RNA sequence: AUUAAGGGUAGAGGCGCAUUGUCUAUAAGUAGUUUGCCGGAGGUGAUUCCAGUGAUGGCAAGUGAAAGGAGCCAAUGCCGAAGUGAGAAUGAGCUAUCAACUCAUCUUGCUGGGGUUGUCACCGAACAGGGUCAACACUGCCAUAGUAUAUAAUGACAUUAACUAUGGAGCGCUACUGUGGGG
Numbered sequence: 001a002u003u004a005a006g007g008g009u010a011g012a013g014g015c016g017c018a019u020u021g022u023c024u025a026u027a028a029g030u031a032g033u034u035u036g037c038c039g040g041a042g043g044u045g046a047u048u049c050c051a052g053u054g055a056u057g058g059c060a061a062g063u064g065a066a067a068g069g070a071g072c073c074a075a076u077g078c079c080g081a082a083g084u085g086a087g088a089a090u091g092a093g094c095u096a097u098c099a100a101c102u103c104a105u106c107u108u109g110c111u112g113g114g115g116u117u118g119u120c121a122c123c124g125a126a127c128a129g130g131g132u133c134a135a136c137a138c139u140g141c142c143a144u145a146g147u148a149u150a151u152a153a154u155g156a157c158a159u160u161a162a163c164u165a166u167g168g169a170g171c172g173c174u175a176c177u178g179u180g181g182g183g
Stems, first nucleotide, its partner, number of pairs: 007177005016078006023071002032063008082111006089105005112139002115136004120131001122129001141168007

Source information:
The record is a 183-nucleotide sequence from Photobacterium jeanii, which matches "Lysine riboswitch aptamer" in Rfam. Rfam links the family to the GO term lysine biosynthetic process. Riboswitches are metabolite binding domains within certain messenger RNAs that serve as precision sensors for their corresponding targets.